[Rfam]
RNA sequence: CGUCCCCGUUCGCCUGCGCUCGCAGGCCGCGCGAGGCAUGUCGGCUAGGGGUGAAGCCGCUCACCGGGUCCCGGUGGCGGCCGGGCCAUCUUGCGGCCCGAACCCGACAGCUCACCUCGUAGGCGUCGCAAGAGGACUC
Dot-bracket structure: ..........((((...((.........))(((((((..........)(((.....((((................))))..((((.........))))...))).........)))))).))))..............
Numbered sequence: 001c002g003u004c005c006c007c008g009u010u011c012g013c014c015u016g017c018g019c020u021c022g023c024a025g026g027c028c029g030c031g032c033g034a035g036g037c038a039u040g041u042c043g044g045c046u047a048g049g050g051g052u053g054a055a056g057c058c059g060c061u062c063a064c065c066g067g068g069u070c071c072c073g074g075u076g077g078c079g080g081c082c083g084g085g086c087c088a089u090c091u092u093g094c095g096g097c098c099c100g101a102a103c104c105c106g107a108c109a110g111c112u113c114a115c116c117u118c119g120u121a122g123g124c125g126u127c128g129c130a131a132g133a134g135g136a137c138u139c
Stems, first nucleotide, its partner, number of pairs: 011125004018030002031120006037048001049105003057080004083099004
A member of the RNA family "c-di-AMP riboswitch aptamer (ydaO/yuaA leader)" from Kitasatospora kifunensis, 139 nucleotides long.
It scores 52 bits against the family's covariance model.